Notes: Shown here is a 108-nucleotide sequence from Flavobacteriaceae bacterium R38, a member of the family "6S-Flavo RNA". Pairs were carried over by alignment from the consensus structure, which is taken from published work.
[Rfam]
RNA sequence: ACUCAACGUGAUUCAAUUCAAAAGGGUGAGUGUAAGUUGUAAAAGCAUGCCGUCUUUGUCACGGAUCCUUGAGCAGCUUUGUAGCCCUAAACUUGUUUUUAGGAGUUU
Numbered sequence: 001a002c003u004c005a006a007c008g009u010g011a012u013u014c015a016a017u018u019c020a021a022a023a024g025g026g027u028g029a030g031u032g033u034a035a036g037u038u039g040u041a042a043a044a045g046c047a048u049g050c051c052g053u054c055u056u057u058g059u060c061a062c063g064g065a066u067c068c069u070u071g072a073g074c075a076g077c078u079u080u081g082u083a084g085c086c087c088u089a090a091a092c093u094u095g096u097u098u099u100u101a102g103g104a105g106u107u108u
Stems, first nucleotide, its partner, number of pairs: 023088005034079005043070003050064004